[Rfam]
RNA sequence: GUCCCCGUAGCUCAGUUGGAUAGAGCGGCGGUUUCCUAAACCGCAGGUCGGCUGUUCGAAUCAGCCCGGGGACG
Numbered sequence: 001g002u003c004c005c006c007g008u009a010g011c012u013c014a015g016u017u018g019g020a021u022a023g024a025g026c027g028g029c030g031g032u033u034u035c036c037u038a039a040a041c042c043g044c045a046g047g048u049c050g051g052c053u054g055u056u057c058g059a060a061u062c063a064g065c066c067c068g069g070g071g072a073c074g
Base pairs, nucleotide, nucleotide: 001073002072003071004070005069006068007067010026011025012024013023028044029043030042031041032040050066051065052064053063054062
RNA: tRNA